[Rfam]
The record is a 132-nucleotide RNA sequence from Aquarana catesbeiana, which matches "Small nucleolar RNA SNORA31" in Rfam. Pairs were carried over by alignment from the consensus structure, which was predicted with RNAalifold. A search with the family's covariance model found it, with a score of 65 bits. Lineage of the source: Eukaryota > Vertebrata > Gnathostomata > Ranoidea > Aquarana. Rfam 15.1 lists 2,094 matches to the family in 626 species. It is annotated as an H/ACA-box small nucleolar RNA. Rfam describes the family as follows. ACA31 (SNORA31) belongs to the H/ACA class of snoRNAs which are thought to guide the sites of modification of uridines to pseudouridines.

RNA sequence: UUGCAUCUAUUGAUAGACCAUAAACCGCUUUCUAUUGCCUUAUGGUUUGCACUAAGAUGCUAUAGAAACCUCCUCGCGCUUUCUGUCUAGCAGACUCUGUAGCUUGAGCAGUUUGAAUAGAGGAGUACACUA
Number, nucleotide and partner (000 for none) at each position: 001u000002u000003g060004c059005a058006u057007c056008u055009a000010u000011u051012g050013a000014u049015a048016g047017a046018c045019c044020a000021u000022a000023a000024a000025c037026c000027g035028c000029u000030u000031u000032c000033u000034a000035u027036u000037g025038c000039c000040u000041u000042a000043u000044g019045g018046u017047u016048u015049g014050c012051a011052c000053u000054a000055a008056g007057a006058u005059g004060c003061u000062a000063u000064a000065g000066a000067a000068a000069c000070c000071u124072c123073c122074u121075c120076g000077c000078g000079c115080u000081u000082u000083c111084u110085g109086u000087c106088u000089a104090g103091c102092a000093g000094a000095c000096u000097c000098u000099g000100u000101a000102g091103c090104u089105u000106g087107a000108g000109c085110a084111g083112u000113u000114u000115g079116a000117a000118u000119a000120g075121a074122g073123g072124a071125g000126u000127a000128c000129a000130c000131u000132a000